Annotation
The family of this 98-nucleotide RNA sequence from Loxodonta africana is "mir-544 microRNA precursor family". The match comes from Rfam's covariance-model search (70 bits).
RNA sequence: AUCACAUAAGGAUCUUAUUAAAAUACAGAUUCUAUUUCAGUAGGUCUGGGGUGGGACCUAAGAGUCUGCAUUUCUAACAAGUUCCCAAGUGAUGCCAG
Numbered sequence: 001a002u003c004a005c006a007u008a009a010g011g012a013u014c015u016u017a018u019u020a021a022a023a024u025a026c027a028g029a030u031u032c033u034a035u036u037u038c039a040g041u042a043g044g045u046c047u048g049g050g051g052u053g054g055g056a057c058c059u060a061a062g063a064g065u066c067u068g069c070a071u072u073u074c075u076a077a078c079a080a081g082u083u084c085c086c087a088a089g090u091g092a093u094g095c096c097a098g
Stems, first nucleotide, its partner, number of pairs: 003091003010084002014081003018077003021073003026068004031063003